[Rfam]
The record is a 78-nucleotide sequence from Microcaecilia unicolor, which matches "Mammalian CPEB3 ribozyme" in Rfam. A search with the family's covariance model found it, with a score of 38 bits. Taxonomically the source falls in Microcaecilia (Eukaryota, Deuterostomia, Sarcopterygii, Amphibia). Pairs were carried over by alignment from the consensus structure, which is taken from published work. From the family's description: The mammalian CPEB3 ribozyme is a self cleaving RNA located in the second intron of the CPEB3 gene which belongs to a family of genes regulating messenger RNA polyadenylation.
RNA sequence: GGACAGUUUUGGGUGGCCAUAUUCAAAGCGUUCAUAUUACAGCUUCUGUCAGAUUUCUAGGAAUUUGUGAAUUCUGAA
Numbered sequence: 001g002g003a004c005a006g007u008u009u010u011g012g013g014u015g016g017c018c019a020u021a022u023u024c025a026a027a028g029c030g031u032u033c034a035u036a037u038u039a040c041a042g043c044u045u046c047u048g049u050c051a052g053a054u055u056u057c058u059a060g061g062a063a064u065u066u067g068u069g070a071a072u073u074c075u076g077a078a
Base pairs, nucleotide, nucleotide: 013046015044016043017042022077023076026073027072028040030038050067051066052065053064054063055062056061